[Rfam]
RNA sequence: UGUUAAGCGAAGUUGGUUUGUGACCGUCACUAACGGGCAGUACCUCUAUUUGCUCGUUUUGACGAUCGCAAAAUGAACUCGCUUGAC
Numbered sequence: 001u002g003u004u005a006a007g008c009g010a011a012g013u014u015g016g017u018u019u020g021u022g023a024c025c026g027u028c029a030c031u032a033a034c035g036g037g038c039a040g041u042a043c044c045u046c047u048a049u050u051u052g053c054u055c056g057u058u059u060u061g062a063c064g065a066u067c068g069c070a071a072a073a074u075g076a077a078c079u080c081g082c083u084u085g086a087c
Stems, first nucleotide, its partner, number of pairs: 003086008013076003017072007025064002032058008
RNA: mir-274 microRNA precursor family